The family of this 56-nucleotide RNA sequence from Lactobacillus johnsonii is "Transposase-1 RNA". By type it is a small RNA. The organism belongs to Lactobacillus johnsonii, within Bacteria.
[Rfam]
RNA sequence: UACGAGCUAGUCAAUGUGAUUACUCCUAGAUUGGAAUAUCAGAAUACUAGUGAAGA
Numbered sequence: 001u002a003c004g005a006g007c008u009a010g011u012c013a014a015u016g017u018g019a020u021u022a023c024u025c026c027u028a029g030a031u032u033g034g035a036a037u038a039u040c041a042g043a044a045u046a047c048u049a050g051u052g053a054a055g056a
Stems, first nucleotide, its partner, number of pairs: 006051006017041004024035003